[Rfam]
RNA sequence: UCACCUGUCGGCAUCCGCAAGGCCGUCGACAACUCCCUCGGUGUGCUCCCGAAAGGGAGAGGCUGAGAUGAAAGCGCGGUUUUUCUGGAUGUCUUUUGUCCGCGCGUGAACGCCCUCCUUGCUCUUACAAGCGCAUGCUGGAGAGGAUACAAAAACAGUCCUUGUU
Numbered sequence: 001u002c003a004c005c006u007g008u009c010g011g012c013a014u015c016c017g018c019a020a021g022g023c024c025g026u027c028g029a030c031a032a033c034u035c036c037c038u039c040g041g042u043g044u045g046c047u048c049c050c051g052a053a054a055g056g057g058a059g060a061g062g063c064u065g066a067g068a069u070g071a072a073a074g075c076g077c078g079g080u081u082u083u084u085c086u087g088g089a090u091g092u093c094u095u096u097u098g099u100c101c102g103c104g105c106g107u108g109a110a111c112g113c114c115c116u117c118c119u120u121g122c123u124c125u126u127a128c129a130a131g132c133g134c135a136u137g138c139u140g141g142a143g144a145g146g147a148u149a150c151a152a153a154a155a156c157a158g159u160c161c162u163u164g165u166u
Stems, first nucleotide, its partner, number of pairs: 006031007015022002036070001037067005046061003050055001088160003091156002094154006113146002115143004
RNA: Ascomycota telomerase RNA, nucleotides 1136 to 1301